Shown here is a 376-nucleotide sequence from Candidatus Propionivibrio aalborgensis, a member of the family "Bacterial RNase P class A". Pairs were carried over by alignment from the consensus structure, which is taken from published work. From the family's description: Ribonuclease P (RNase P) is a ubiquitous endoribonuclease, found in archaea, bacteria and eukarya as well as chloroplasts and mitochondria.

[Rfam]
RNA sequence: GAAGUCGGUCAGGCAACCGCUGGGCGAAAGGUGAGCACUUCGGUGCAAGCCUGAGCCGAGAGGAAAGUCCGGGCUUCACAGAGCAGGAUGCCGGCUAACGGCCGGGCACCGUGAGGUGACGGAAAGUGCAACAGAGAACAGACCGCCUAAGUCCGGGGCAACCCGGGCCGGCAAGGGUGAAACGGCGAGGUAAGAGCUCACCGCGGACGUGGUAACACGGACGGCACGGCAAACCCCAUCCGAAGCAAGGCCAAAUAGGGAAGCGCAUGGCGUGGCUCGCGCCGCUUCCGGGUAGGCUGCUUGAGCGUACUGGCAACAGUGCGCCUAGAGGAAUGGUUGUCCACGACAGAACCCGGCUUAACGACCGGCUUCCCCC
Numbered sequence: 001g002a003a004g005u006c007g008g009u010c011a012g013g014c015a016a017c018c019g020c021u022g023g024g025c026g027a028a029a030g031g032u033g034a035g036c037a038c039u040u041c042g043g044u045g046c047a048a049g050c051c052u053g054a055g056c057c058g059a060g061a062g063g064a065a066a067g068u069c070c071g072g073g074c075u076u077c078a079c080a081g082a083g084c085a086g087g088a089u090g091c092c093g094g095c096u097a098a099c100g101g102c103c104g105g106g107c108a109c110c111g112u113g114a115g116g117u118g119a120c121g122g123a124a125a126g127u128g129c130a131a132c133a134g135a136g137a138a139c140a141g142a143c144c145g146c147c148u149a150a151g152u153c154c155g156g157g158g159c160a161a162c163c164c165g166g167g168c169c170g171g172c173a174a175g176g177g178u179g180a181a182a183c184g185g186c187g188a189g190g191u192a193a194g195a196g197c198u199c200a201c202c203g204c205g206g207a208c209g210u211g212g213u214a215a216c217a218c219g220g221a222c223g224g225c226a227c228g229g230c231a232a233a234c235c236c237c238a239u240c241c242g243a244a245g246c247a248a249g250g251c252c253a254a255a256u257a258g259g260g261a262a263g264c265g266c267a268u269g270g271c272g273u274g275g276c277u278c279g280c281g282c283c284g285c286u287u288c289c290g291g292g293u294a295g296g297c298u299g300c301u302u303g304a305g306c307g308u309a310c311u312g313g314c315a316a317c318a319g320u321g322c323g324c325c326u327a328g329a330g331g332a333a334u335g336g337u338u339g340u341c342c343a344c345g346a347c348a349g350a351a352c353c354c355g356g357c358u359u360a361a362c363g364a365c366c367g368g369c370u371u372c373c374c375c376c
Stems, first nucleotide, its partner, number of pairs: 001372010012341007020060002023057003028052001065359003069356005074245004081278004086241005091105005106120001107118004121236002126234002128230002143176002145172003152167005184202002187199003203225001204223002208219004249298004259289006269283005305324008